The family of this 153-nucleotide RNA sequence from Allobosea spartocytisi is "Manganese Mn2+ riboswitch aptamer (yybP-ykoY)". A search with the family's covariance model found it, with a score of 49 bits. The literature on the family includes a 2015 paper in Mol Cell by Dambach et al., "The ubiquitous yybP-ykoY riboswitch is a manganese-responsive regulatory element".
[Rfam]
RNA sequence: CUCUUCCGCAUCGGGGAGUAGCCACCGCUCAGACAGCGGGAUCACGCCAACAGGCUCGCGCCAUGCGCGUGGUGUGAUCAGCCGGUUUUUCACCGGCCCGGCAAGACCGUGGUGAAACUCGCCUUUGUCGGACAGGUGAGGGCCACCCGGUUC
Numbered sequence: 001c002u003c004u005u006c007c008g009c010a011u012c013g014g015g016g017a018g019u020a021g022c023c024a025c026c027g028c029u030c031a032g033a034c035a036g037c038g039g040g041a042u043c044a045c046g047c048c049a050a051c052a053g054g055c056u057c058g059c060g061c062c063a064u065g066c067g068c069g070u071g072g073u074g075u076g077a078u079c080a081g082c083c084g085g086u087u088u089u090u091c092a093c094c095g096g097c098c099c100g101g102c103a104a105g106a107c108c109g110u111g112g113u114g115a116a117a118c119u120c121g122c123c124u125u126u127g128u129c130g131g132a133c134a135g136g137u138g139a140g141g142g143c144c145a146c147c148c149g150g151u152u153c
Base pairs, nucleotide, nucleotide: 026038027037028036040079041078042077043076044075045074046073047072048071049070057069058068059067060066061065080152081151082150083149084148085147